Source information: A member of the RNA family "MIR845_2 microRNA precursor family" from Vitis vinifera, 129 nucleotides long. The literature on the family includes a 2007 paper in Nature by Jaillon et al., "The grapevine genome sequence suggests ancestral hexaploidization in major angiosperm phyla". Rfam links the family to the GO terms RISC complex and miRNA-mediated post-transcriptional gene silencing.
RNA sequence: AGAAUGCAUAUUAAUUAUCCCUGGGCCAUGGAAUAAACAAAAACCCUAUAAAAACAAGUUGGAACACCCUAGAAUGGUUCUAGCAUGAUUGCUAACCUAUGACUCUGAUACUAGUUGAAGGAAAAACUC
Numbered sequence: 001a002g003a004a005u006g007c008a009u010a011u012u013a014a015u016u017a018u019c020c021c022u023g024g025g026c027c028a029u030g031g032a033a034u035a036a037a038c039a040a041a042a043a044c045c046c047u048a049u050a051a052a053a054a055c056a057a058g059u060u061g062g063a064a065c066a067c068c069c070u071a072g073a074a075u076g077g078u079u080c081u082a083g084c085a086u087g088a089u090u091g092c093u094a095a096c097c098u099a100u101g102a103c104u105c106u107g108a109u110a111c112u113a114g115u116u117g118a119a120g121g122a123a124a125a126a127c128u129c
Stems, first nucleotide, its partner, number of pairs: 009119001011118006022107001023105003027101005047085001052079002055076002059072004